[Rfam]
RNA sequence: CACGUUCAACUCAUUAGAGUCGGAAGUAAGCGUAAGCUGAAGGAACGCACC
Numbered sequence: 001c002a003c004g005u006u007c008a009a010c011u012c013a014u015u016a017g018a019g020u021c022g023g024a025a026g027u028a029a030g031c032g033u034a035a036g037c038u039g040a041a042g043g044a045a046c047g048c049a050c051c
Base pairs, nucleotide, nucleotide: 003047004046005045006044007043009020010019011018012017023048029038030037031036
RNA: Glutamine riboswitch aptamer (glnA leader)